A member of the RNA family "Streptomyces sRNA 4677" from Streptomyces griseoflavus, 243 nucleotides long. The pairing is the family consensus, mapped onto this sequence. The source organism's lineage runs through Bacteria, Actinomycetota, Streptomycetaceae, Streptomyces and Streptomyces griseoflavus. The family's RNA type in Rfam is small RNA.
[Rfam]
RNA sequence: AGCUCCGGUGCCGUCGGCGCCUUCCCAAAGCAAGAACCCGGGGAGAAAACACCCCACCAAGCCCCACCCCUCCCGCCCGAGGCACGCGAUCACUCGGGCGGGUGAACAUCACCGGCUCAGCUGGAUUCUCGAACCCCCGACACCUCUACGCUCAGCGCACACAACCCCGAAAAAGACUUCGGCCCCCGCCGGGACGGCAAUCCCAGUGCGAGGGCCUGACCACCAAGGAAGUCGGCCUUCCCG
Numbered sequence: 001a002g003c004u005c006c007g008g009u010g011c012c013g014u015c016g017g018c019g020c021c022u023u024c025c026c027a028a029a030g031c032a033a034g035a036a037c038c039c040g041g042g043g044a045g046a047a048a049a050c051a052c053c054c055c056a057c058c059a060a061g062c063c064c065c066a067c068c069c070c071u072c073c074c075g076c077c078c079g080a081g082g083c084a085c086g087c088g089a090u091c092a093c094u095c096g097g098g099c100g101g102g103u104g105a106a107c108a109u110c111a112c113c114g115g116c117u118c119a120g121c122u123g124g125a126u127u128c129u130c131g132a133a134c135c136c137c138c139g140a141c142a143c144c145u146c147u148a149c150g151c152u153c154a155g156c157g158c159a160c161a162c163a164a165c166c167c168c169g170a171a172a173a174a175g176a177c178u179u180c181g182g183c184c185c186c187c188g189c190c191g192g193g194a195c196g197g198c199a200a201u202c203c204c205a206g207u208g209c210g211a212g213g214g215c216c217u218g219a220c221c222a223c224c225a226a227g228g229a230a231g232u233c234g235g236c237c238u239u240c241c242c243g
Stems, first nucleotide, its partner, number of pairs: 007224004016077004090105006120156005181216005187210003191204004227241005